[Rfam]
RNA sequence: CCCUCGGAGAGUUAUAUCAAACAAAAGUAGCUUUUAGCAAAAUUGGACUCAUUGAACAGGGAA
Number, nucleotide and partner (000 for none) at each position: 001c061002c060003c059004u058005c000006g000007g000008a000009g050010a049011g048012u047013u046014a000015u000016a000017u000018c000019a000020a000021a000022c045023a044024a043025a000026a000027g000028u000029a000030g038031c037032u036033u000034u000035u000036a032037g031038c030039a000040a000041a000042a000043u024044u023045g022046g013047a012048c011049u010050c009051a000052u000053u000054g000055a000056a000057c000058a004059g003060g002061g001062a000063a000
Background
Shown here is a 63-nucleotide RNA sequence, a member of the family "RAGATH-18 RNA". Rfam's curators put it in the seed alignment. Actinobacteria, Firmicutes, Fusobacteria, Thermotogae (1 example). The base pairs follow the family's consensus structure, which is taken from published work.